[Rfam]
RNA: Small nucleolar RNA SNORD97
Organism: Ursus maritimus
RNA sequence: CUGCCCGAUGAUUAUAAAUAAGACGCGUUAUUAAGAGGACUUAAUGCUGGAGCUCUUCACCUUCUUCUUUUCUGUACUUCCUUUUUCUUUCUUUGGAUGUCCAGCGUCCUGUGAGCGAAGAUUAUGAGAUAUGAGGGCAA
Numbered sequence: 001c002u003g004c005c006c007g008a009u010g011a012u013u014a015u016a017a018a019u020a021a022g023a024c025g026c027g028u029u030a031u032u033a034a035g036a037g038g039a040c041u042u043a044a045u046g047c048u049g050g051a052g053c054u055c056u057u058c059a060c061c062u063u064c065u066u067c068u069u070u071u072c073u074g075u076a077c078u079u080c081c082u083u084u085u086u087c088u089u090u091c092u093u094u095g096g097a098u099g100u101c102c103a104g105c106g107u108c109c110u111g112u113g114a115g116c117g118a119a120g121a122u123u124a125u126g127a128g129a130u131a132u133g134a135g136g137g138c139a140a
Stems, first nucleotide, its partner, number of pairs: 002139005036056003040052003
Dot-bracket structure: .(((((.............................(((.(((.......))).)))..............................................................................))))).